[Rfam]
RNA sequence: CUACUGUGCCAGCUGGUGGAUCGCUCGGCUUGAGAGCUGAAGAAGGACGUGCCAAGCUGCGAUAAGCCUCAGGGACCCGCACGGAGGGGAAGAACUGAGGAUUUCCGAAUGGGAAUCCCCACCGCAAUUGCUUCGCGCAAUGGGGAACGCCGAGAAUUGAAACAUCUUAGUAUCGGCAGGAAGAGAAAACGUAACCGUGAUGUCGUUAGUAACGGCGAGUGAACGCGACACAGUCCAAACCGAAGCCUUCGGGCAAUGUGGUGUUCGGACUGACAACCACUCCGCGAAAGGCUGCAAGAAGUCUCUUGGAAUAGAGCACGAAACAGGGUGAUAGUCCCGUACUGCAGGCGAGUAUCGGACGCGUCAGCUCCAGAGUAUCGGGGGUUGGAUAUCCCUCGUGAAUAUUGCAGGCAUCGACUGCAAAGACUAAACACUCCUCAAGACCGAUAGCGAACAAGUAGCGUGAGCGAACGCUGAAAAGCACCCCACGAAGGGAGGUGCAAUAGGGCGUGAAAUCAGUUGGCGAUCGAAC
Numbered sequence: 001c002u003a004c005u006g007u008g009c010c011a012g013c014u015g016g017u018g019g020a021u022c023g024c025u026c027g028g029c030u031u032g033a034g035a036g037c038u039g040a041a042g043a044a045g046g047a048c049g050u051g052c053c054a055a056g057c058u059g060c061g062a063u064a065a066g067c068c069u070c071a072g073g074g075a076c077c078c079g080c081a082c083g084g085a086g087g088g089g090a091a092g093a094a095c096u097g098a099g100g101a102u103u104u105c106c107g108a109a110u111g112g113g114a115a116u117c118c119c120c121a122c123c124g125c126a127a128u129u130g131c132u133u134c135g136c137g138c139a140a141u142g143g144g145g146a147a148c149g150c151c152g153a154g155a156a157u158u159g160a161a162a163c164a165u166c167u168u169a170g171u172a173u174c175g176g177c178a179g180g181a182a183g184a185g186a187a188a189a190c191g192u193a194a195c196c197g198u199g200a201u202g203u204c205g206u207u208a209g210u211a212a213c214g215g216c217g218a219g220u221g222a223a224c225g226c227g228a229c230a231c232a233g234u235c236c237a238a239a240c241c242g243a244a245g246c247c248u249u250c251g252g253g254c255a256a257u258g259u260g261g262u263g264u265u266c267g268g269a270c271u272g273a274c275a276a277c278c279a280c281u282c283c284g285c286g287a288a289a290g291g292c293u294g295c296a297a298g299a300a301g302u303c304u305c306u307u308g309g310a311a312u313a314g315a316g317c318a319c320g321a322a323a324c325a326g327g328g329u330g331a332u333a334g335u336c337c338c339g340u341a342c343u344g345c346a347g348g349c350g351a352g353u354a355u356c357g358g359a360c361g362c363g364u365c366a367g368c369u370c371c372a373g374a375g376u377a378u379c380g381g382g383g384g385u386u387g388g389a390u391a392u393c394c395c396u397c398g399u400g401a402a403u404a405u406u407g408c409a410g411g412c413a414u415c416g417a418c419u420g421c422a423a424a425g426a427c428u429a430a431a432c433a434c435u436c437c438u439c440a441a442g443a444c445c446g447a448u449a450g451c452g453a454a455c456a457a458g459u460a461g462c463g464u465g466a467g468c469g470a471a472c473g474c475u476g477a478a479a480a481g482c483a484c485c486c487c488a489c490g491a492a493g494g495g496a497g498g499u500g501c502a503a504u505a506g507g508g509c510g511u512g513a514a515a516u517c518a519g520u521u522g523g524c525g526a527u528c529g530a531a532c
Stems, first nucleotide, its partner, number of pairs: 007525010022510001023474002027445002029442006035435002045106003048061003067100006076088003111120003127141005148179001149177005159166002189198002202229005212220002232428004240261003271366004281359004297343002301317001303316004320324001326338003379398006406422005461468002

A member of the RNA family "Archaeal large subunit ribosomal RNA" from Halopiger xanaduensis, 532 nucleotides of a longer RNA. The base pairs follow the family's consensus structure, which is taken from published work. NCBI's taxonomy places the organism under Archaea, Methanobacteriota, Natrialbaceae, Halopiger, Halopiger xanaduensis.